[Rfam]
Shown here is a 127-nucleotide RNA from Populus deltoides, a member of the family "Streptococcus sRNA 34". On this family, see Tesorero et al., PLoS One 2013: "Novel regulatory small RNAs in Streptococcus pyogenes". Lineage of the source: Eukaryota > Streptophyta > Embryophyta > Magnoliopsida > Populus. The family's consensus secondary structure was predicted with RNAfold.
RNA sequence: ACUGUACUAGUUUUUUGAAAGAAAAAAAAACUUUGAGUGUUGGUUUUUUUAAAAAAAACUAUUCACUUAGUGAAUAAUGCGCAGUGGAGCAUGGCUCCACUGUUCACUAAACAGUGGAGCCAUGCUC
Numbered sequence: 001a002c003u004g005u006a007c008u009a010g011u012u013u014u015u016u017g018a019a020a021g022a023a024a025a026a027a028a029a030a031c032u033u034u035g036a037g038u039g040u041u042g043g044u045u046u047u048u049u050u051a052a053a054a055a056a057a058a059c060u061a062u063u064c065a066c067u068u069a070g071u072g073a074a075u076a077a078u079g080c081g082c083a084g085u086g087g088a089g090c091a092u093g094g095c096u097c098c099a100c101u102g103u104u105c106a107c108u109a110a111a112c113a114g115u116g117g118a119g120c121c122a123u124g125c126u127c
Stems, first nucleotide, its partner, number of pairs: 001085004009078001011076001013074003033070007042063003045058005092122007100114005
Dot-bracket structure: ((((....(.(.(((.................(((((((..((((((((....)))))..)))))))))).))).).)...))))......(((((((.(((((.....))))).))))))).....